The record is an 81-nucleotide RNA sequence from Salana multivorans, which matches "Actino-pnp RNA" in Rfam. It is annotated as a cis-regulatory element. NCBI's taxonomy places the organism under Bacteria, Actinomycetota, Actinomycetes, Beutenbergiaceae, Salana.

[Rfam]
RNA sequence: GUCGGUCCUCGGUAGUGGCUCCCGGGCCUGGACGUCGACCUCGGUCGCGCACCAGGGCGUGGGCCUCGAUCGAAGACCUCC
Number, nucleotide and partner (000 for none) at each position: 001g081002u000003c000004g078005g077006u076007c075008c000009u073010c072011g071012g070013u069014a000015g000016u000017g065018g064019c063020u062021c061022c000023c059024g058025g000026g000027c056028c055029u054030g053031g052032a000033c000034g000035u000036c000037g000038a000039c000040c000041u000042c000043g000044g000045u000046c000047g000048c000049g000050c000051a000052c031053c030054a029055g028056g027057g000058c024059g023060u000061g021062g020063g019064c018065c017066u000067c000068g000069a013070u012071c011072g010073a009074a000075g007076a006077c005078c004079u000080c000081c001